[Rfam]
RNA: Small nucleolar RNA SNORD70
RNA sequence: UUCAAUGUUGUCAAUGAUGCAUUCUUGUUGAAACUGAAUUACAUGAUCUAAUUCAAACUCGUCACUACCACUGAGACAACAUUGAG
Numbered sequence: 001u002u003c004a005a006u007g008u009u010g011u012c013a014a015u016g017a018u019g020c021a022u023u024c025u026u027g028u029u030g031a032a033a034c035u036g037a038a039u040u041a042c043a044u045g046a047u048c049u050a051a052u053u054c055a056a057a058c059u060c061g062u063c064a065c066u067a068c069c070a071c072u073g074a075g076a077c078a079a080c081a082u083u084g085a086g
Stems, first nucleotide, its partner, number of pairs: 001086012